[Rfam]
RNA sequence: CUGGGCUAUGGCGACAUGUAUCCAGAGACCUGGUCAGGCAUGGUGGUGGGCGCAUUAUGUGCUUUAGCUGGUGUGCUGACGAUAGCCAUGCCUGUGCCAGUUAUCGUCAAUAAC
Number, nucleotide and partner (000 for none) at each position: 001c000002u113003g000004g111005g000006c000007u000008a107009u106010g105011g104012c000013g102014a101015c100016a000017u000018g097019u096020a095021u094022c000023c000024a000025g000026a000027g000028a000029c000030c000031u000032g000033g000034u000035c000036a000037g077038g076039c075040a074041u000042g000043g000044u000045g000046g000047u000048g000049g063050g062051c061052g000053c000054a000055u000056u000057a000058u000059g000060u000061g051062c050063u049064u000065u000066a000067g000068c000069u000070g000071g000072u000073g000074u040075g039076c038077u037078g000079a000080c000081g000082a000083u000084a000085g000086c000087c000088a000089u000090g000091c000092c000093u000094g021095u020096g019097c018098c000099a000100g015101u014102u013103a000104u011105c010106g009107u008108c000109a000110a000111u004112a000113a002114c000